[Rfam]
RNA sequence: AGACCUGCAGAGAGAGAGAUAGGGUCUGAUCUGCAGCCUCAGUGACAGCUGUUGAUCAGCCAUUGCCUCUCUCUUUCUUGCUG
Numbered sequence: 001a002g003a004c005c006u007g008c009a010g011a012g013a014g015a016g017a018g019a020u021a022g023g024g025u026c027u028g029a030u031c032u033g034c035a036g037c038c039u040c041a042g043u044g045a046c047a048g049c050u051g052u053u054g055a056u057c058a059g060c061c062a063u064u065g066c067c068u069c070u071c072u073c074u075u076u077c078u079u080g081c082u083g
Stems, first nucleotide, its partner, number of pairs: 010075009020065003024061001026059006034051004
The record is an 83-nucleotide RNA sequence from Myotis lucifugus, which matches "mir-574 microRNA precursor family" in Rfam. Its family is annotated with miRNA-mediated post-transcriptional gene silencing and RISC complex in the Gene Ontology. Lineage of the source: Eukaryota > Metazoa > Amniota > Theria > Myotis.